This 100-nucleotide sequence from Clostridium tepidiprofundi belongs to the Rfam family "Purine riboswitch aptamer". Taxonomically the source falls in Clostridium tepidiprofundi (Bacteria, Bacillota, Clostridia, Clostridium). A search with the family's covariance model found it, with a score of 81 bits.
RNA sequence: AAUUUAAUAGGAUUGGAUGCUUAUAUAAUGCUGAUAAUAUGGUUCAGCAGUUUCUACCGAAUACCUUAAAUAUUCGACUAUGAGUAUUCUUAAUGUAUUU
Number, nucleotide and partner (000 for none) at each position: 001a000002a000003u000004u000005u000006a000007a000008u000009a000010g000011g000012a000013u000014u000015g000016g000017a000018u086019g085020c084021u083022u082023a081024u080025a079026u000027a000028a000029u049030g048031c047032u046033g045034a044035u000036a000037a000038u000039a000040u000041g000042g000043u000044u034045c033046a032047g031048c030049a029050g000051u000052u000053u000054c000055u000056a000057c000058c076059g075060a074061a073062u072063a071064c000065c000066u000067u000068a000069a000070a000071u063072a062073u061074u060075c059076g058077a000078c000079u025080a024081u023082g022083a021084g020085u019086a018087u000088u000089c000090u000091u000092a000093a000094u000095g000096u000097a000098u000099u000100u000